RNA sequence: AACGACCGGUCGGAGUCGCGCGCCCAUGGGCAGCGGAUCCGACCCACAAGUGGAGGCUUCGAACUCCCACCCGACCGUCCCCCGGGACGGCGGGUCUCCGGUCAGGCGGUCCCGUCCCCGAGGCGGUGACCGGCCCGAAAGCGCGCCCCGCGGCCGUCGUGGUGGUGCUCCGGUAGCAGUUCGAGGAGCCCCGCAUGUGACCGUCCGGGGCAUUUUUU
Numbered sequence: 001a002a003c004g005a006c007c008g009g010u011c012g013g014a015g016u017c018g019c020g021c022g023c024c025c026a027u028g029g030g031c032a033g034c035g036g037a038u039c040c041g042a043c044c045c046a047c048a049a050g051u052g053g054a055g056g057c058u059u060c061g062a063a064c065u066c067c068c069a070c071c072c073g074a075c076c077g078u079c080c081c082c083c084g085g086g087a088c089g090g091c092g093g094g095u096c097u098c099c100g101g102u103c104a105g106g107c108g109g110u111c112c113c114g115u116c117c118c119c120g121a122g123g124c125g126g127u128g129a130c131c132g133g134c135c136c137g138a139a140a141g142c143g144c145g146c147c148c149c150g151c152g153g154c155c156g157u158c159g160u161g162g163u164g165g166u167g168c169u170c171c172g173g174u175a176g177c178a179g180u181u182c183g184a185g186g187a188g189c190c191c192c193g194c195a196u197g198u199g200a201c202c203g204u205c206c207g208g209g210g211c212a213u214u215u216u217u218u
Stems, first nucleotide, its partner, number of pairs: 004103006012040002041096005047073001050070004054065002075090006105135003109131001112126005145211006151203003158199003162194004167189005